[Rfam]
RNA sequence: CGUCUCUGGAGAGUAGGUGGCCGGUGGCCGCCUCACCGACGGGGUAAGUCCGCGAUGCGGGUGAAGCUCUCAGGUUUCGUGGACAGAGGGGGAGGA
Numbered sequence: 001c002g003u004c005u006c007u008g009g010a011g012a013g014u015a016g017g018u019g020g021c022c023g024g025u026g027g028c029c030g031c032c033u034c035a036c037c038g039a040c041g042g043g044g045u046a047a048g049u050c051c052g053c054g055a056u057g058c059g060g061g062u063g064a065a066g067c068u069c070u071c072a073g074g075u076u077u078c079g080u081g082g083a084c085a086g087a088g089g090g091g092g093a094g095g096a
Stems, first nucleotide, its partner, number of pairs: 001091001003089006015033006035075003038071002042069003048062004
Shown here is a 96-nucleotide RNA sequence from Actinocatenispora sera, a member of the family "Glycine riboswitch aptamer". This family represents the bacterial glycine riboswitch. Glycine riboswitches usually consist of two metabolite-binding aptamers domains with similar structures in tandem. The aptamers cooperatively bind glycine to regulate the expression of downstream genes. In Bacillus subtilis, this riboswitch is found upstream of the gcvT operon which controls glycine degradation. The source organism's lineage runs through Bacteria, Bacillati, Micromonosporales, Micromonosporaceae and Actinocatenispora. A search with the family's covariance model found it, with a score of 40 bits.